This 170-nucleotide RNA from Stagnimonas aquatica belongs to the Rfam family "Manganese Mn2+ riboswitch aptamer (yybP-ykoY)". Rfam's curators write: This RNA was originally discovered in E. coli during a large scale screen and was named SraF. The family was later found to exist upstream of related families of protein genes in many bacteria, including the the yybP and ykoK genes in B. subtilis. The specific functions of these proteins are unknown, but this structured RNA element may be involved in their genetic regulation as a riboswitch. The organism belongs to Stagnimonas, within Bacteria.
RNA sequence: CGCGCCGUCAUUGGGGAGUAGCCGCUCUUCCACCCGAAGAGGUUUGCGUCAACACACUUGGCCCGCAGGCCAUGGCGCAGACAGUCGCUUUCAGCCUGGCAAGACCUUUGACCACGACGCCUCCGAUGGCCGGGGUAGCGGCGUGGUCAUUCGUCCACCGCCCGGCCCUG
Number, nucleotide and partner (000 for none) at each position: 001c000002g000003c000004g000005c000006c000007g000008u000009c000010a000011u000012u000013g000014g000015g000016g000017a000018g000019u000020a000021g000022c000023c000024g000025c000026u040027c039028u038029u000030c000031c000032a000033c000034c000035c000036g000037a000038a028039g027040a026041g000042g082043u081044u080045u079046g078047c077048g076049u075050c074051a073052a000053c000054a000055c000056a000057c000058u000059u072060g071061g070062c069063c068064c000065g000066c000067a000068g063069g062070c061071c060072a059073u051074g050075g049076c048077g047078c046079a045080g044081a043082c042083a000084g000085u000086c000087g000088c170089u000090u000091u000092c000093a000094g000095c000096c000097u000098g000099g000100c000101a000102a000103g000104a000105c000106c000107u000108u000109u000110g000111a000112c000113c000114a000115c000116g000117a000118c000119g000120c000121c000122u000123c000124c000125g000126a000127u000128g000129g000130c000131c000132g000133g000134g000135g000136u000137a000138g000139c000140g000141g000142c000143g000144u000145g000146g000147u000148c000149a000150u000151u000152c000153g000154u000155c000156c000157a000158c000159c000160g000161c000162c000163c000164g000165g000166c000167c000168c000169u000170g088

A search with the family's covariance model found it, with a score of 94 bits.